[Rfam]
RNA: Archaeal large subunit ribosomal RNA, nucleotides 564 to 633
RNA sequence: AUAGGGCACUAAAGCGGUGAAACCAUUAACUAUGGUAGAGCGGUGUUCUAUUGUCCGUGUUGAAGAACGG
Number, nucleotide and partner (000 for none) at each position: 001a051002u050003a049004g048005g047006g046007c045008a044009c043010u000011a000012a000013a000014g041015c040016g000017g000018u000019g000020a000021a000022a036023c035024c034025a033026u032027u000028a000029a000030c000031u000032a026033u025034g024035g023036u022037a000038g000039a000040g015041c014042g000043g009044u008045g007046u006047u005048c004049u003050a002051u001052u000053g000054u000055c070056c069057g068058u067059g000060u000061u000062g000063a000064a000065g000066a000067a058068c057069g056070g055